This 112-nucleotide sequence from Orycteropus afer belongs to the Rfam family "mir-448 microRNA precursor family". The base pairs follow the family's consensus structure, which was predicted with RNAalifold. The source organism's lineage runs through Eukaryota, Metazoa, Amniota, Tubulidentata and Orycteropus afer. The match comes from Rfam's covariance-model search (117 bits). On this family, see Linsen et al., BMC Genomics 2010: "Small RNA expression and strain specificity in the rat".
[Rfam]
RNA sequence: GUGUGGAGGUUGAACAUCCUGCAUAGUGCUGCCAGGAAACCCCUAUUUUGCAAUAAGAGGGGGCUGGCUGGUUGCAUAUGUAGGAUGUCCCAUCUCCCCGCUCACUUCAUCA
Numbered sequence: 001g002u003g004u005g006g007a008g009g010u011u012g013a014a015c016a017u018c019c020u021g022c023a024u025a026g027u028g029c030u031g032c033c034a035g036g037a038a039a040c041c042c043c044u045a046u047u048u049u050g051c052a053a054u055a056a057g058a059g060g061g062g063g064c065u066g067g068c069u070g071g072u073u074g075c076a077u078a079u080g081u082a083g084g085a086u087g088u089c090c091c092a093u094c095u096c097c098c099c100g101c102u103c104a105c106u107u108c109a110u111c112a
Base pairs, nucleotide, nucleotide: 005097006096007095008094009093010092012090014088015087016086017085018084019083020082021081022080023079024078025077027076028075029074031072032071033070034069035068040062041061042060043059044058046057047056048055